Annotation:
Rfam assigns this 102-nucleotide RNA sequence from Xylophilus sp. Leaf220 to the family "TPP riboswitch aptamer (THI element)". Rfam's curators write: Vitamin B(1) in its active form thiamin pyrophosphate (TPP) is an essential coenzyme that is synthesised by coupling of pyrimidine and thiazole moieties in bacteria. Gene Ontology term of the family: thiamine pyrophosphate binding.
RNA sequence: GCCCUCGCUCCGGGGUGCGCUUUGCGCUGAGAUGGUCCACACGACCGAACCCGCGAACUUGAACCGGCUAGUACCGGCGUAAGAAGAGCUGCAGUUCUCCAC
Numbered sequence: 001g002c003c004c005u006c007g008c009u010c011c012g013g014g015g016u017g018c019g020c021u022u023u024g025c026g027c028u029g030a031g032a033u034g035g036u037c038c039a040c041a042c043g044a045c046c047g048a049a050c051c052c053g054c055g056a057a058c059u060u061g062a063a064c065c066g067g068c069u070a071g072u073a074c075c076g077g078c079g080u081a082a083g084a085a086g087a088g089c090u091g092c093a094g095u096u097c098u099c100c101a102c
Stems, first nucleotide, its partner, number of pairs: 007089004011053004016047001017027004034046004058083004064077004